[Rfam]
This 249-nucleotide sequence from Lentibacillus sp. JNUCC-1 belongs to the Rfam family "BsrG". By type it is a small RNA. A search with the family's covariance model found it, with a score of 74 bits. Rfam 15.1 lists 614 matches to the family in 343 species. On this family, see Jahn and Brantl, Nucleic Acids Res 2013: "One antitoxin--two functions: SR4 controls toxin mRNA decay and translation". NCBI's taxonomy places the organism under Bacteria, Bacillota, Caryophanales, Bacillaceae, Lentibacillus. Its family is annotated with autolysis and toxin activity in the Gene Ontology.
RNA sequence: UGCAAUAGGGCUUUCAUAGGUGGUGGCUCACCCCUUUUAAUAGAAAGGGGGUGACUGUGAUGACAGUUUUCGAGACGUUGUUUCUUAUGAUCUCGUUUGCAACAUUGAUUGUUGUAGCACUGUCGGAACAGAAAAAAUAACCACCCCAUGAGCUUGAUGAACAAUGAGGGUGGUUAUGCUUCCCGAAUUGUGAGUCACCCCUUUAAAGGGGUGUUGCACACGACCGGAUGGUGUUCACGCACCAUUCGG
Number, nucleotide and partner (000 for none) at each position: 001u218002g217003c216004a215005a214006u000007a212008g000009g196010g195011c194012u193013u152014u151015c150016a149017u148018a000019g146020g145021u000022g142023g141024u140025g000026g000027c000028u054029c053030a052031c000032c050033c049034c048035u047036u046037u000038u000039a000040a000041u000042a000043g000044a000045a000046a036047g035048g034049g033050g032051g000052u030053g029054a028055c000056u000057g000058u000059g000060a000061u000062g124063a123064c122065a121066g120067u119068u000069u000070u000071c000072g000073a000074g000075a000076c089077g088078u000079u000080g000081u000082u000083u000084c000085u000086u000087a000088u077089g076090a000091u000092c000093u000094c000095g000096u000097u000098u000099g000100c000101a000102a113103c000104a000105u000106u000107g000108a000109u000110u000111g000112u000113u102114g000115u000116a000117g000118c000119a067120c066121u065122g064123u063124c062125g000126g000127a000128a000129c000130a000131g000132a000133a000134a000135a000136a000137a000138u000139a000140a024141c023142c022143a000144c000145c020146c019147c000148a017149u016150g015151a014152g013153c000154u000155u000156g000157a000158u000159g000160a000161a000162c190163a189164a188165u000166g000167a000168g000169g000170g000171u000172g000173g000174u000175u000176a000177u000178g000179c000180u000181u000182c000183c000184c000185g000186a000187a000188u164189u163190g162191u000192g000193a012194g011195u010196c009197a000198c211199c210200c209201c208202u000203u000204u000205a000206a000207a000208g201209g200210g199211g198212u007213g000214u005215u004216g003217c002218a001219c000220a000221c000222g000223a000224c249225c248226g247227g246228a245229u244230g243231g242232u241233g240234u000235u000236c000237a000238c000239g000240c233241a232242c231243c230244a229245u228246u227247c226248g225249g224